[Rfam]
RNA sequence: UCUGAUCUAUGAUGACAACUUAAUGCUAUGAGGACUGCUGGAUGAAGCAUGCGGAUAUGGGACUGAGAUCAGCU
Number, nucleotide and partner (000 for none) at each position: 001u000002c072003u071004g070005a069006u000007c000008u000009a000010u000011g000012a000013u000014g000015a000016c000017a000018a000019c000020u000021u000022a000023a000024u000025g000026c000027u000028a000029u000030g000031a000032g000033g000034a000035c000036u000037g000038c000039u000040g000041g000042a000043u000044g000045a000046a000047g000048c000049a000050u000051g000052c000053g000054g000055a000056u000057a000058u000059g000060g000061g000062a000063c000064u000065g000066a000067g000068a000069u005070c004071a003072g002073c000074u000
RNA: Small nucleolar RNA SNORD99